The family of this 213-nucleotide RNA sequence from Acer yangbiense is "Plant small nucleolar RNA U3". The base pairs follow the family's consensus structure, which is taken from published work. It scores 199 bits against the family's covariance model. Rfam 15.1 lists 3,759 matches to the family in 258 species. The literature on the family includes a 1997 paper in Nucleic Acids Res by Zwieb, "The uRNA database". Rfam's curators write: Small nucleolar RNAs (snoRNAs) are involved in the processing and modification of rRNA in the nucleolus. There are two main classes of snoRNAs: the box C/D class, and the box H/ACA class. U3 snoRNA is a member of the box C/D class.
RNA sequence: ACGACCUUACUUGAACAGGAUCUGUUCUAUAGGCUCGUACCUCUGUAUCCUUGAGUUCUAAGGAGACAGGAUAUCAAGUCUGGUGGAUGAAUCAUGACCGUGUGAUUAGAGCGUGAUUAUUGGUCUCACCCAUCUUCGGAUGUGUGGUGCCGCAGAGGAUCGUUCUCAGUCAGGUUCCCUGGCUGGGUUGGUCACACGGUUGUCUGACAGACU
Numbered sequence: 001a002c003g004a005c006c007u008u009a010c011u012u013g014a015a016c017a018g019g020a021u022c023u024g025u026u027c028u029a030u031a032g033g034c035u036c037g038u039a040c041c042u043c044u045g046u047a048u049c050c051u052u053g054a055g056u057u058c059u060a061a062g063g064a065g066a067c068a069g070g071a072u073a074u075c076a077a078g079u080c081u082g083g084u085g086g087a088u089g090a091a092u093c094a095u096g097a098c099c100g101u102g103u104g105a106u107u108a109g110a111g112c113g114u115g116a117u118u119a120u121u122g123g124u125c126u127c128a129c130c131c132a133u134c135u136u137c138g139g140a141u142g143u144g145u146g147g148u149g150c151c152g153c154a155g156a157g158g159a160u161c162g163u164u165c166u167c168a169g170u171c172a173g174g175u176u177c178c179c180u181g182g183c184u185g186g187g188u189u190g191g192u193c194a195c196a197c198g199g200u201u202g203u204c205u206g207a208c209a210g211a212c213u
Stems, first nucleotide, its partner, number of pairs: 001038002003035001005033003013027006043069004048064006078212005097200012110164004121152004127146003131142004165187010